[Rfam]
RNA sequence: UUUUAUCAUAAUAAAAGAGGUGAUGGGUGGACGAUGAUUCACUAAUCUUAUUUUUGUCAUUUGAAAUCGAAUAUUUCAAAUUAUACGAAAUAGGAUUAGUCUGCCCAUUUUUAUAAACGACAAAGCUAUCGAUGAAGUAGCUUUUUUGUCAUACAAAUGUACGGCUAAUCCUUCCAAAUAACUGGGAGGAUUUUUUU
Numbered sequence: 001u002u003u004u005a006u007c008a009u010a011a012u013a014a015a016a017g018a019g020g021u022g023a024u025g026g027g028u029g030g031a032c033g034a035u036g037a038u039u040c041a042c043u044a045a046u047c048u049u050a051u052u053u054u055u056g057u058c059a060u061u062u063g064a065a066a067u068c069g070a071a072u073a074u075u076u077c078a079a080a081u082u083a084u085a086c087g088a089a090a091u092a093g094g095a096u097u098a099g100u101c102u103g104c105c106c107a108u109u110u111u112u113a114u115a116a117a118c119g120a121c122a123a124a125g126c127u128a129u130c131g132a133u134g135a136a137g138u139a140g141c142u143u144u145u146u147u148g149u150c151a152u153a154c155a156a157a158u159g160u161a162c163g164g165c166u167a168a169u170c171c172u173u174c175c176a177a178a179u180a181a182c183u184g185g186g187a188g189g190a191u192u193u194u195u196u197u
Stems, first nucleotide, its partner, number of pairs: 016112003024107004030101003043098012059081009118148003125141005167192010
The record is a 197-nucleotide RNA sequence from Heyndrickxia ginsengihumi, which matches "Bacillus sRNA ncr1575" in Rfam. The family's RNA type in Rfam is small RNA.